A member of the RNA family "Enterobacteria sRNA STnc130" from Citrobacter koseri, 137 nucleotides long. It is annotated as a small RNA. Pairs were carried over by alignment from the consensus structure, which was predicted with WAR. The sequence is in the family's curated seed alignment.

[Rfam]
RNA sequence: UAUAAUGAAUAUGAGAAAAAUCAGCGAUAAAUGCUAAUCUUCAUUCGAAGGUAGUAUUACCCCCAAAGGGGUAACCAUUCUUGUCCGGUGUCAAACAGGCAUAAAAAAAAGCGCCCGGAGGCGCUUUUUAAGCAGAG
Numbered sequence: 001u002a003u004a005a006u007g008a009a010u011a012u013g014a015g016a017a018a019a020a021u022c023a024g025c026g027a028u029a030a031a032u033g034c035u036a037a038u039c040u041u042c043a044u045u046c047g048a049a050g051g052u053a054g055u056a057u058u059a060c061c062c063c064c065a066a067a068g069g070g071g072u073a074a075c076c077a078u079u080c081u082u083g084u085c086c087g088g089u090g091u092c093a094a095a096c097a098g099g100c101a102u103a104a105a106a107a108a109a110a111g112c113g114c115c116c117g118g119a120g121g122c123g124c125u126u127u128u129u130a131a132g133c134a135g136a137g
Stems, first nucleotide, its partner, number of pairs: 061070002107127002110125006